A member of the RNA family "TPP riboswitch aptamer (THI element)" from Rhodobacteraceae bacterium KLH11, 121 nucleotides long. It scores 55 bits against the family's covariance model. NCBI's taxonomy places the organism under Bacteria, Pseudomonadati, Pseudomonadota, Rhodobacterales, Paracoccaceae.
RNA sequence: AGCAUUACGCAGGGGAGUCUCGCUUUGGAGACUGAGAGGCUGACAGGGCAAAUGCCCGGUGAUGCGACCCUUUGAACCUGACCCAGUUGACACUGGCGUAGGAAGCUAGGGAUGCAUUGCC
Number, nucleotide and partner (000 for none) at each position: 001a000002g000003c000004a000005u000006u109007a000008c000009g106010c105011a071012g070013g069014g068015g000016a000017g032018u031019c030020u029021c028022g000023c000024u000025u000026u000027g000028g021029a020030g019031a018032c017033u000034g000035a000036g000037a000038g000039g065040c064041u000042g000043a000044c000045a000046g000047g000048g000049c000050a000051a000052a000053u000054g000055c000056c000057c000058g000059g000060u000061g000062a000063u000064g040065c039066g000067a000068c014069c013070c012071u011072u000073u000074g000075a000076a000077c102078c101079u100080g099081a000082c000083c096084c095085a094086g093087u000088u000089g000090a000091c000092a000093c086094u085095g084096g083097c000098g000099u080100a079101g078102g077103a000104a000105g010106c009107u000108a000109g006110g000111g000112a000113u000114g000115c000116a000117u000118u000119g000120c000121c000